[Rfam]
RNA sequence: GCAGCCUAAUCACCGCCCCUAUAGUCCUUUUCUAAACCUUAUGGCUGGUGCAGCCGCCCGCCAGUGCUUGCGGGUGUGCACAGGCCUACAUCUAGGGUCAUAGGUGGGGAGCGGAUCCUGUCCAUCCUCAAUCCGGGCCCGCACA
Numbered sequence: 001g002c003a004g005c006c007u008a009a010u011c012a013c014c015g016c017c018c019c020u021a022u023a024g025u026c027c028u029u030u031u032c033u034a035a036a037c038c039u040u041a042u043g044g045c046u047g048g049u050g051c052a053g054c055c056g057c058c059c060g061c062c063a064g065u066g067c068u069u070g071c072g073g074g075u076g077u078g079c080a081c082a083g084g085c086c087u088a089c090a091u092c093u094a095g096g097g098u099c100a101u102a103g104g105u106g107g108g109g110a111g112c113g114g115a116u117c118c119u120g121u122c123c124a125u126c127c128u129c130a131a132u133c134c135g136g137g138c139c140c141g142c143a144c145a
Base pairs, nucleotide, nucleotide: 001142002141043086044085045084046083048081049080050079051078052077055076056075057074058073059072060071061070103134104133105130106129107128108127109126110125113123114122115121116120
A member of the RNA family "Small nucleolar RNA GlsR18" from Giardia duodenalis, 145 nucleotides long. The sequence is in the family's curated seed alignment. Rfam links the family to the GO terms RNA processing and nucleolus. It is annotated as an H/ACA-box small nucleolar RNA. The family's consensus secondary structure was predicted with WAR.